[Rfam]
RNA sequence: AAAUGUGCUCUUUUAGUAUUUCUCCAGUAGGUUUUCUGAAGGAGAAAACCUCC
Numbered sequence: 001a002a003a004u005g006u007g008c009u010c011u012u013u014u015a016g017u018a019u020u021u022c023u024c025c026a027g028u029a030g031g032u033u034u035u036c037u038g039a040a041g042g043a044g045a046a047a048a049c050c051u052c053c
Base pairs, nucleotide, nucleotide: 030050031049032048033047034046035045036044037043
U7 small nuclear RNA: a 53-nucleotide RNA sequence from Hucho hucho. A search with the family's covariance model found it, with a score of 42 bits. The source organism's lineage runs through Eukaryota, Osteoglossocephalai, Protacanthopterygii, Salmoninae and Hucho. The family has 49 seed sequences and 10,439 matches in Rfam 15.1. For this family Rfam cites "3' end processing of mouse histone pre-mRNA: evidence for additional base-pairing between U7 snRNA and pre-mRNA" (Spycher et al., Nucleic Acids Res, 1994). Animal histone pre-mRNAs are spliced by a different mechanism than nuclear pre-mRNAs and self-splicing introns.